Annotation:
The family of this 125-nucleotide RNA sequence from Undibacterium sp. KW1 is "Manganese Mn2+ riboswitch aptamer (yybP-ykoY)". About the family: This RNA was originally discovered in E. coli during a large scale screen and was named SraF. The family was later found to exist upstream of related families of protein genes in many bacteria, including the the yybP and ykoK genes in B. subtilis. The specific functions of these proteins are unknown, but this structured RNA element may be involved in their genetic regulation as a riboswitch. The organism belongs to Undibacterium, within Bacteria. The base pairs follow the family's consensus structure.
RNA sequence: UUCUCUUUCAUUGGGGAGUAGCCUGCUCCGGUUAAAUCCGGGGAAAACGCAUCAACAUACUUGACCAUCCGGUCAUGGUGCGUUUGAUACAGCCAGUCGCAUGACAUAAGUGCACUGAUUGUAUU
Numbered sequence: 001u002u003c004u005c006u007u008u009c010a011u012u013g014g015g016g017a018g019u020a021g022c023c024u025g026c027u028c029c030g031g032u033u034a035a036a037u038c039c040g041g042g043g044a045a046a047a048c049g050c051a052u053c054a055a056c057a058u059a060c061u062u063g064a065c066c067a068u069c070c071g072g073u074c075a076u077g078g079u080g081c082g083u084u085u086g087a088u089a090c091a092g093c094c095a096g097u098c099g100c101a102u103g104a105c106a107u108a109a110g111u112g113c114a115c116u117g118a119u120u121g122u123a124u125u
Stems, first nucleotide, its partner, number of pairs: 026043003045085010062075005086125007